[Rfam]
RNA sequence: AAAAAGACAAACCAUGGUUUCCGUGCCCAACGUUUUACUGUCCGUCUUAUUUGAAAAAAUUAUAAAAAAAUUAAAAAGACAAGUCACGCAUAAAAUAUUAAUCAUGUUUUAUCAUCUAACAAUAAUGAAAAUACGAAUUAUAAAAAAAUCUCAUAUAAAACGGACAGUCAAAGUUGGACACGGAAACCCAGGGUUUGCCUUUUU
Number, nucleotide and partner (000 for none) at each position: 001a000002a000003a000004a000005a000006g000007a000008c000009a000010a000011a000012c000013c000014a000015u000016g000017g000018u000019u000020u000021c000022c000023g000024u000025g000026c000027c177028c176029a175030a174031c173032g000033u172034u171035u170036u000037a168038c167039u166040g165041u164042c163043c162044g161045u160046c000047u158048u157049a156050u155051u000052u000053g000054a000055a000056a000057a000058a000059a000060u000061u000062a000063u000064a000065a000066a000067a000068a000069a000070a000071u000072u000073a000074a000075a000076a000077a000078g000079a000080c000081a000082a000083g000084u000085c000086a000087c000088g000089c000090a000091u000092a000093a000094a000095a000096u000097a000098u000099u000100a000101a000102u000103c000104a000105u000106g000107u000108u000109u000110u000111a000112u000113c000114a000115u000116c000117u000118a000119a000120c000121a000122a000123u000124a000125a000126u000127g000128a000129a000130a000131a000132u000133a000134c000135g000136a000137a000138u000139u000140a000141u000142a000143a000144a000145a000146a000147a000148a000149u000150c000151u000152c000153a000154u000155a050156u049157a048158a047159a000160a045161c044162g043163g042164a041165c040166a039167g038168u037169c000170a035171a034172a033173g031174u030175u029176g028177g027178a000179c000180a000181c000182g000183g000184a000185a000186a000187c000188c000189c000190a000191g000192g000193g000194u000195u000196u000197g000198c000199c000200u000201u000202u000203u000204u000